[Rfam]
RNA sequence: UUAAUAAUUUGGCAAACUUAUUAAAAGAUAAGGACGCAAAGCUAUGGGUCUAAGGAGAUCGUAUAUUUCUAUGACUGCCAGGUUGCUCAC
Number, nucleotide and partner (000 for none) at each position: 001u000002u000003a000004a000005u000006a000007a000008u000009u000010u000011g000012g037013c036014a000015a000016a000017c032018u031019u030020a029021u028022u027023a000024a000025a000026a000027g022028a021029u020030a019031a018032g017033g000034a000035c000036g013037c012038a000039a000040a084041g083042c082043u081044a000045u080046g079047g078048g075049u074050c073051u000052a000053a000054g000055g069056a068057g067058a066059u000060c000061g000062u000063a000064u000065a000066u058067u057068u056069c055070u000071a000072u000073g050074a049075c048076u000077g000078c047079c046080a045081g043082g042083u041084u040085g000086c000087u000088c000089a000090c000
About this RNA: c-di-GMP-I riboswitch aptamer: a 90-nucleotide RNA sequence from Clostridium magnum. The organism belongs to Clostridium magnum, within Bacteria. Pairs were carried over by alignment from the consensus structure, which is taken from published work.